[Rfam]
RNA sequence: AAUUAAAAAAGUCUCCGAGCCCGGUUGCCUAAAGCUCCAGUGCCAUGGCAACCGGGCCGUCAGGGUGCGGGGGGAAACCGCUGCGCCUCCCGGUGCGGAAAGGGGGUAUUUUGUCAGGCUG
Numbered sequence: 001a002a003u004u005a006a007a008a009a010a011g012u013c014u015c016c017g018a019g020c021c022c023g024g025u026u027g028c029c030u031a032a033a034g035c036u037c038c039a040g041u042g043c044c045a046u047g048g049c050a051a052c053c054g055g056g057c058c059g060u061c062a063g064g065g066u067g068c069g070g071g072g073g074g075a076a077a078c079c080g081c082u083g084c085g086c087c088u089c090c091c092g093g094u095g096c097g098g099a100a101a102g103g104g105g106g107u108a109u110u111u112u113g114u115c116a117g118g119c120u121g
Stems, first nucleotide, its partner, number of pairs: 006112001011107006019057011034043002063088008072079002089098002
Dot-bracket structure: .....(....((((((..(((((((((((....((......))...))))))))))).....((((((((.((....)).))))))))((......))...))))))....).........
RNA: Molybdenum/Tungsten riboswitch aptamer (Moco RNA motif)